[Rfam]
RNA sequence: GCCACUGUCUGAUAUGUUUGGUAUAAGGUUGUUUCAGUAACAAUCAACUGUAUAUCAAACAUAUGGUCACAGUAGC
Numbered sequence: 001g002c003c004a005c006u007g008u009c010u011g012a013u014a015u016g017u018u019u020g021g022u023a024u025a026a027g028g029u030u031g032u033u034u035c036a037g038u039a040a041c042a043a044u045c046a047a048c049u050g051u052a053u054a055u056c057a058a059a060c061a062u063a064u065g066g067u068c069a070c071a072g073u074a075g076c
Base pairs, nucleotide, nucleotide: 005072006071007070008069012064013063014062015061016060017059018058019057020056021055022054023053024052025051027049028048029047030046031045
The family of this 76-nucleotide sequence from Petromyzon marinus is "mir-190 microRNA precursor family". Rfam's curators put it in the seed alignment. Gene Ontology terms of the family: RISC complex and miRNA-mediated post-transcriptional gene silencing. The family has 76 seed sequences and 1,667 matches in Rfam 15.1. The family is grouped with related families in Rfam's "mir-50 clan". The source organism's lineage runs through Eukaryota, Opisthokonta, Eumetazoa, Bilateria and Petromyzon.